[Rfam]
RNA sequence: CGGGCCGUGCGACAGGAAUUCCGCUAGUUCUGAACUAUCGACGCUGCAAAAAGCUCACUACUAGCAGAACUCGGCCGCGCGGCCCC
Numbered sequence: 001c002g003g004g005c006c007g008u009g010c011g012a013c014a015g016g017a018a019u020u021c022c023g024c025u026a027g028u029u030c031u032g033a034a035c036u037a038u039c040g041a042c043g044c045u046g047c048a049a050a051a052a053g054c055u056c057a058c059u060a061c062u063a064g065c066a067g068a069a070c071u072c073g074g075c076c077g078c079g080c081g082g083c084c085c086c
Stems, first nucleotide, its partner, number of pairs: 003084009013074001015072002019069003023065006031057003035053002038051001